[Rfam]
Overview: Lysine riboswitch aptamer: a 176-nucleotide RNA sequence from Crenobacter intestini.
RNA sequence: CUUUUAAGUAGAGGUUGCGCCGGCCAAGAGUCCGCGACAGGAGGGGGAACCCGCCGAUCGUCGCCAAAAGGGGUCGGCGCCGAAGCGUCUGCACCGUCGGGUGCGGGCGCUGGGGGCGGCCUGAACAGGGUCGUCACUGCCAUAGUCUGAGCAAACUAUGGAGCGCUACUGAAAGG
Numbered sequence: 001c002u003u004u005u006a007a008g009u010a011g012a013g014g015u016u017g018c019g020c021c022g023g024c025c026a027a028g029a030g031u032c033c034g035c036g037a038c039a040g041g042a043g044g045g046g047g048a049a050c051c052c053g054c055c056g057a058u059c060g061u062c063g064c065c066a067a068a069a070g071g072g073g074u075c076g077g078c079g080c081c082g083a084a085g086c087g088u089c090u091g092c093a094c095c096g097u098c099g100g101g102u103g104c105g106g107g108c109g110c111u112g113g114g115g116g117c118g119g120c121c122u123g124a125a126c127a128g129g130g131u132c133g134u135c136a137c138u139g140c141c142a143u144a145g146u147c148u149g150a151g152c153a154a155a156c157u158a159u160g161g162a163g164c165g166c167u168a169c170u171g172a173a174a175g176g
Base pairs, nucleotide, nucleotide: 007170008169009168010167011166017080018079019078020077021076022075023074024073025072034064035063036062037061038060040058084111085110086109087108088107089106090105091104092103093102094101095100112138113137115135116134117133118132119131120130121129122128140161141160142159143158144157145156146155

Riboswitches are metabolite binding domains within certain messenger RNAs that serve as precision sensors for their corresponding targets. Allosteric rearrangement of mRNA structure is mediated by ligand binding, and this results in modulation of gene expression. This family includes riboswitches that sense lysine in a number of genes involved in lysine metabolism, including lysC.